[Rfam]
RNA sequence: GACGUGCGGGAUACCCACCAGUCAGCGAGGUUUCGCCCACUGGUGCGAUUUUA
Dot-bracket structure: ...............(((((((..((((....))))..)))))))........
RNA: ffh sRNA